[Rfam]
RNA sequence: GAACCACCCUGGGGGUGCUCGACAAGAGCUGAGAUAGGCGUAGUGCCUGACCCUUAUAACUUGAACUGGAUAAUUCCAGCGUAAGGAAGAGGUGACGAAGACAG
Number, nucleotide and partner (000 for none) at each position: 001g000002a000003a000004c000005c000006a000007c091008c000009c089010u088011g054012g053013g052014g051015g000016u000017g029018c028019u027020c026021g000022a000023c000024a000025a000026g020027a019028g018029c017030u000031g000032a000033g000034a000035u000036a048037g047038g046039c045040g044041u000042a000043g000044u040045g039046c038047c037048u036049g000050a000051c014052c013053c012054u011055u000056a000057u000058a000059a000060c085061u084062u083063g082064a000065a000066c079067u078068g077069g076070a000071u000072a000073a000074u000075u000076c069077c068078a067079g066080c000081g000082u063083a062084a061085g060086g000087a000088a010089g009090a000091g007092g000093u000094g000095a000096c000097g000098a000099a000100g000101a000102c000103a000104g000